Rfam assigns this 205-nucleotide RNA sequence from Bacteroides thetaiotaomicron to the family "Bacteroides sRNA BTnc005".

RNA sequence: GUAAGUAAAAGUGUAACAGGAAGAAAGUUGCAGCAUAUAUGCGGUGAAUUAUGCGGUGUCAUAGGAAUUGAGGAUUUAUGUAAGAUGCUGAUAAUGAGUAAGGAACCUUAAAGUUAAUCGUUCCCUGUCUCUCCGCAGAACCUACUGGACAAAACAGGACAGUAAGUGGACAAAAACCUACAAAUCAGCGAUUUGUAGGUUUUUU
Numbered sequence: 001g002u003a004a005g006u007a008a009a010a011g012u013g014u015a016a017c018a019g020g021a022a023g024a025a026a027g028u029u030g031c032a033g034c035a036u037a038u039a040u041g042c043g044g045u046g047a048a049u050u051a052u053g054c055g056g057u058g059u060c061a062u063a064g065g066a067a068u069u070g071a072g073g074a075u076u077u078a079u080g081u082a083a084g085a086u087g088c089u090g091a092u093a094a095u096g097a098g099u100a101a102g103g104a105a106c107c108u109u110a111a112a113g114u115u116a117a118u119c120g121u122u123c124c125c126u127g128u129c130u131c132u133c134c135g136c137a138g139a140a141c142c143u144a145c146u147g148g149a150c151a152a153a154a155c156a157g158g159a160c161a162g163u164a165a166g167u168g169g170a171c172a173a174a175a176a177c178c179u180a181c182a183a184a185u186c187a188g189c190g191a192u193u194u195g196u197a198g199g200u201u202u203u204u205u
Stems, first nucleotide, its partner, number of pairs: 012032006041136004048095005054090007065077003096131003099127002102124004176200011

Overview
The sequence is in the family's curated seed alignment.